Shown here is a 113-nucleotide sequence from Pedobacter sp., a member of the family "SAM riboswitch aptamer (S box leader)".
About the family: The SAM riboswitch is found upstream of a number of genes which code for proteins involved in methionine or cysteine biosynthesis in Gram-positive bacteria. The SAM riboswitch acts at the level of transcription termination control. The predicted structure consists of a complex stem-loop region followed by a single stem loop terminator region.
A search with the family's covariance model found it, with a score of 79 bits.
Pairs were carried over by alignment from the consensus structure, which is taken from published work.
RNA sequence: GAUUUAUAAAGAAGUGGCGAGAGACAGGCUCUAUGACCCACUGGCAACCCUCCAAUUGGAGAAGGUGCCAAUUCCUGACCAGAAUAGCAUGGUGCUUUCUGGAAAGAUAAAUU
Numbered sequence: 001g002a003u004u005u006a007u008a009a010a011g012a013a014g015u016g017g018c019g020a021g022a023g024a025c026a027g028g029c030u031c032u033a034u035g036a037c038c039c040a041c042u043g044g045c046a047a048c049c050c051u052c053c054a055a056u057u058g059g060a061g062a063a064g065g066u067g068c069c070a071a072u073u074c075c076u077g078a079c080c081a082g083a084a085u086a087g088c089a090u091g092g093u094g095c096u097u098u099c100u101g102g103a104a105a106g107a108u109a110a111a112u113u
Base pairs, nucleotide, nucleotide: 001113002112003111004110005109006108007107013042014041015040016039017038021031022030023029025077026076027075028074043069044068045067046066048065049064050061051060052059053058073105079102080101081100082099083098084097